[Rfam]
RNA: Enterobacteria greA leader
RNA sequence: GACAUACUACGGCGCAUCGACCCGGAAAGUAAACGAUGACCCACGGUGAACUUCCGGUUAAAAUACGUAUCAAAUUGAAAAAUUGCGCUGACCUGGGGCUUUGUCUCCGGGUCAGUUUUCUUU
Dot-bracket structure: (.(((....((..((.............))...))))).)(......)........(.((.......)).)...............(((((((((((........))))))))))).......